Potassium channel RNA editing signal: a 114-nucleotide RNA sequence from Danionella cerebrum.
Rfam classes the family as a cis-regulatory element.
The base pairs follow the family's consensus structure, which is taken from published work.
Nucleotides: 114
Base pairs, nucleotide, nucleotide: 001114002113004111005110007108008107009106010105011104013102014101015100016099018097019096020095021094037077038076039075040074049063050062051061
Number, partner (000 for none) and nucleotide at each position: 001114g002113u003000g004111g005110g006000c007108u008107a009106c010105g011104g012000a013102g014101a015100c016099a017000u018097g019096u020095g021094u022000c023000c024000g025000g026000u027000c028000a029000c030000c031000a032000u033000c034000g035000g036000c037077g038076g039075c040074a041000a042000a043000a044000u045000u046000g047000u048000g049063g050062g051061c052000u053000c054000u055000c056000u057000a058000u059000g060000c061051g062050c063049c064000a065000u066000c067000g068000c069000u070000g071000g072000g073000g074040u075039g076038c077037u078000c079000a080000c081000c082000a083000u084000u085000g086000c087000c088000c089000u090000c091000c092000c093000g094021g095020u096019g097018c098000c099016u100015g101014u102013c103000a104011u105010c106009g107008u108007g109000u110005c111004c112000a113002a114001c